[Rfam]
A member of the RNA family "DUF3800-XI RNA", 47 nucleotides long. Rfam's curators write: Actinobacteria, Firmicutes, Proteobacteria, Spirochaetes (1 example).

RNA sequence: UGGGCUGGUCGAAAGACCCGGGUCCAUCAGCGGAUGGGGAGGUUCCC
Number, nucleotide and partner (000 for none) at each position: 001u026002g025003g024004g023005c022006u021007g018008g017009u016010c015011g000012a000013a000014a000015g010016a009017c008018c007019c000020g000021g006022g005023u004024c003025c002026a001027u000028c000029a000030g000031c000032g000033g000034a000035u000036g000037g000038g000039g000040a000041g000042g000043u000044u000045c000046c000047c000
The sequence is in the family's curated seed alignment.